Shown here is a 74-nucleotide RNA from Eulacestoma nigropectus, a member of the family "U1A polyadenylation inhibition element (PIE)". From the family's description: This family represents the U1A polyadenylation inhibition element (PIE). PIE is a regulatory RNA which is responsible for the regulation of the length of the polyA tail of the U1A pre-mRNA. The PIE is located in the U1A mRNA 3' UTR. PIE adopts a U-shaped structure, with binding sites for a single U1A protein at each bend and when complexed with the two proteins it blocks activity of poly(A) polymerase (PAP), and inhibits its activity. The literature on the family includes a 2004 paper in Biochemistry by Clerte and Hall, "Global and Local Dynamics of the U1A Polyadenylation Inhibition Element (PIE) RNA and PIE RNA-U1A Complexes". The family has 39 seed sequences and 510 matches in Rfam 15.1.
RNA sequence: CCCCCCAGCAUUGUACCCAGGGUCUCUCUGCAGACAUUGCACCUGGAGCUGCCCGACCCCAAAUCCCGACCCCA
Numbered sequence: 001c002c003c004c005c006c007a008g009c010a011u012u013g014u015a016c017c018c019a020g021g022g023u024c025u026c027u028c029u030g031c032a033g034a035c036a037u038u039g040c041a042c043c044u045g046g047a048g049c050u051g052c053c054c055g056a057c058c059c060c061a062a063a064u065c066c067c068g069a070c071c072c073c074a
Base pairs, nucleotide, nucleotide: 006051007050008049009048017046018045019044020043022035023034024033025032